About this RNA
Rfam assigns this 131-nucleotide RNA from Urocolius indicus to the family "Small nucleolar RNA SNORA5". The family is grouped with related families in Rfam's "SNORA5 clan".
RNA sequence: UGCAGCUGAGUCAAAUUCGGUCCCGGGCUGCCCGUGCUGGGGAUCGGCCAAACAGCUGCCACAGCAACCACUGCAGCUCCUGAGCCCCAACUGCCCUUCAGCCUGGGGCUAAGGAAAUGCUGCAGACAGAA
Numbered sequence: 001u002g003c004a005g006c007u008g009a010g011u012c013a014a015a016u017u018c019g020g021u022c023c024c025g026g027g028c029u030g031c032c033c034g035u036g037c038u039g040g041g042g043a044u045c046g047g048c049c050a051a052a053c054a055g056c057u058g059c060c061a062c063a064g065c066a067a068c069c070a071c072u073g074c075a076g077c078u079c080c081u082g083a084g085c086c087c088c089a090a091c092u093g094c095c096c097u098u099c100a101g102c103c104u105g106g107g108g109c110u111a112a113g114g115a116a117a118u119g120c121u122g123c124a125g126a127c128a129g130a131a
Stems, first nucleotide, its partner, number of pairs: 002059004018046007026038003073123005078117001085108005
The match comes from Rfam's covariance-model search (71 bits). ACA5 is a member of the H/ACA class of snoRNA that guide the sites of modification of uridines to pseudouridines. It is annotated as an H/ACA-box small nucleolar RNA.